[Rfam]
RNA sequence: ACUGCAAGUCUGAGACCACAGCAGCAGCACUCACAAUGUCGCCUGUCAGAUUCCAAUGAAUCUUCAAAUUCUGCU
Numbered sequence: 001a002c003u004g005c006a007a008g009u010c011u012g013a014g015a016c017c018a019c020a021g022c023a024g025c026a027g028c029a030c031u032c033a034c035a036a037u038g039u040c041g042c043c044u045g046u047c048a049g050a051u052u053c054c055a056a057u058g059a060a061u062c063u064u065c066a067a068a069u070u071c072u073g074c075u
Stems, first nucleotide, its partner, number of pairs: 014042001016041001020075005026069001027039003048063006
This 75-nucleotide RNA sequence from Crocodylus porosus belongs to the Rfam family "Mammalian CPEB3 ribozyme".
The mammalian CPEB3 ribozyme is a self cleaving RNA located in the second intron of the CPEB3 gene which belongs to a family of genes regulating messenger RNA polyadenylation. This ribozyme is highly conserved and found only in mammals. The CPEB3 ribozyme is structurally and biochemically related to the human hepatitis delta virus (HDV) ribozyme and the HDV ribozyme is proposed to have arisen from the human transcriptome.
The family has 14 seed sequences and 5,706 matches in Rfam 15.1.
Lineage of the source: Eukaryota > Bilateria > Tetrapoda > Crocodylidae > Crocodylus.